[Rfam]
RNA sequence: CGCAGCGGUUGGCGGACUCCCUGAUCACGGGCUGUAUCAUCACGUCUGCACUUUGCAAACAGAUACCCGGCCCGCCAUCAGAGCGGGCUUUUUUUU
Numbered sequence: 001c002g003c004a005g006c007g008g009u010u011g012g013c014g015g016a017c018u019c020c021c022u023g024a025u026c027a028c029g030g031g032c033u034g035u036a037u038c039a040u041c042a043c044g045u046c047u048g049c050a051c052u053u054u055g056c057a058a059a060c061a062g063a064u065a066c067c068c069g070g071c072c073c074g075c076c077a078u079c080a081g082a083g084c085g086g087g088c089u090u091u092u093u094u095u096u
Stems, first nucleotide, its partner, number of pairs: 010042003014037001016035002020031004069089007076081001
Shown here is a 96-nucleotide RNA from Klebsiella sp. RIT-PI-d, a member of the family "Tryptophan operon leader". The literature on the family includes a 1982 paper in Annu Rev Genet by Kolter and Yanofsky, "Attenuation in amino acid biosynthetic operons". Rfam's curators write: At least 6 amino acid operons are known to be regulated by attenuation. In each a leader sequence of 150-200 bp is found upstream of the first gene in the operon. This leader sequence can assume two different secondary structures known as the terminator and the anti-terminator structure. Pairs were carried over by alignment from the consensus structure, which is taken from published work. The match comes from Rfam's covariance-model search (55 bits).